The record is an 88-nucleotide RNA sequence from Limnospira maxima, which matches "tRNA" in Rfam. The organism belongs to Limnospira maxima, within Bacteria. The family's RNA type in Rfam is transfer RNA.

[Rfam]
RNA sequence: GGAGAGGUGGCAGAGAUGGUCGAUUGCGACGGACUCGAAAUUCGUUAGGGGUGCAAGCUCCUCGUGGGUUCGAAUCCCACCCUCUCCG
Numbered sequence: 001g002g003a004g005a006g007g008u009g010g011c012a013g014a015g016a017u018g019g020u021c022g023a024u025u026g027c028g029a030c031g032g033a034c035u036c037g038a039a040a041u042u043c044g045u046u047a048g049g050g051g052u053g054c055a056a057g058c059u060c061c062u063c064g065u066g067g068g069u070u071c072g073a074a075u076c077c078c079a080c081c082c083u084c085u086c087c088g
Stems, first nucleotide, its partner, number of pairs: 001087007010027004029045005064080005